The family of this 169-nucleotide RNA sequence from Pseudoneobacillus rhizosphaerae is "glmS glucosamine-6-phosphate activated ribozyme aptamer". The source organism's lineage runs through Bacteria, Bacillati, Bacillota, Bacillaceae and Pseudoneobacillus. The family's consensus secondary structure is taken from published work. It scores 122 bits against the family's covariance model. Rfam links the family to the GO terms catalytic activity and regulation of gene expression.
RNA sequence: UUGCACGAAAAAGCGCCAGGACUAACCAUUGAUCGAAAAGAGGUUAGUUGACGAGGAGGAGGAGUAUCGAGUUUUCGGCGGAUACCUCCCGGUUGAAUCACACAACCGAAUAUUUCUUCCUUAAACCUUUGGGGUAACCUAAAGUACAAAGGGAAGAUUAUGUGACAUG
Numbered sequence: 001u002u003g004c005a006c007g008a009a010a011a012a013g014c015g016c017c018a019g020g021a022c023u024a025a026c027c028a029u030u031g032a033u034c035g036a037a038a039a040g041a042g043g044u045u046a047g048u049u050g051a052c053g054a055g056g057a058g059g060a061g062g063a064g065u066a067u068c069g070a071g072u073u074u075u076c077g078g079c080g081g082a083u084a085c086c087u088c089c090c091g092g093u094u095g096a097a098u099c100a101c102a103c104a105a106c107c108g109a110a111u112a113u114u115u116c117u118u119c120c121u122u123a124a125a126c127c128u129u130u131g132g133g134g135u136a137a138c139c140u141a142a143a144g145u146a147c148a149a150a151g152g153g154a155a156g157a158u159u160a161u162g163u164g165a166c167a168u169g
Stems, first nucleotide, its partner, number of pairs: 020049008029040001058089005067078004090108006115157005127144007